Notes: This 102-nucleotide RNA from Saimiri boliviensis belongs to the Rfam family "Y RNA". Lineage of the source: Eukaryota > Deuterostomia > Sarcopterygii > Amniota > Saimiri boliviensis. The match comes from Rfam's covariance-model search (55 bits). For this family Rfam cites "5'-YRNA fragments derived by processing of transcripts from specific YRNA genes and pseudogenes are abundant in human serum and plasma" (Dhahbi et al., Physiol Genomics, 2013).
RNA sequence: GGCUGGUCCGACUGCAGUGGUGUUUACAACUAACUAAUCACAACCAGGUACAGACGUCUUAAUUCCCUCUCAACUCCCCCGGCUUCACUUGACGAGCCUUAA
Numbered sequence: 001g002g003c004u005g006g007u008c009c010g011a012c013u014g015c016a017g018u019g020g021u022g023u024u025u026a027c028a029a030c031u032a033a034c035u036a037a038u039c040a041c042a043a044c045c046a047g048g049u050a051c052a053g054a055c056g057u058c059u060u061a062a063u064u065c066c067c068u069c070u071c072a073a074c075u076c077c078c079c080c081g082g083c084u085u086c087a088c089u090u091g092a093c094g095a096g097c098c099u100u101a102a
Stems, first nucleotide, its partner, number of pairs: 001098004006093003010090002014086001017080001019078002022076001032064002036060002